[Rfam]
RNA: Burkholderia RNA 14
RNA sequence: GUCGGCGUCGUCGAGGUCCAGCCUCACGCCGUGCCCGUCGUCACCGAACUGCCGGGCCGCACUAGCGCGUUCCUCGUCGCGCAGGUGCGCGCGCGGGUCGACGCAUCGUGCAGCGCGCGAGUUCACGGAAGGCACGCAGGUCAAGGCGGGGCAACGUCUCUACAAGAUCGA
Numbered sequence: 001g002u003c004g005g006c007g008u009c010g011u012c013g014a015g016g017u018c019c020a021g022c023c024u025c026a027c028g029c030c031g032u033g034c035c036c037g038u039c040g041u042c043a044c045c046g047a048a049c050u051g052c053c054g055g056g057c058c059g060c061a062c063u064a065g066c067g068c069g070u071u072c073c074u075c076g077u078c079g080c081g082c083a084g085g086u087g088c089g090c091g092c093g094c095g096g097g098u099c100g101a102c103g104c105a106u107c108g109u110g111c112a113g114c115g116c117g118c119g120a121g122u123u124c125a126c127g128g129a130a131g132g133c134a135c136g137c138a139g140g141u142c143a144a145g146g147c148g149g150g151g152c153a154a155c156g157u158c159u160c161u162a163c164a165a166g167a168u169c170g171a
Stems, first nucleotide, its partner, number of pairs: 003054005008047003011043001013041001015039002018037001021034002023031001056147003061141003065137001067135001069133002072131001074129002078093005094119002097116001099115002102113001103111003155170002157167003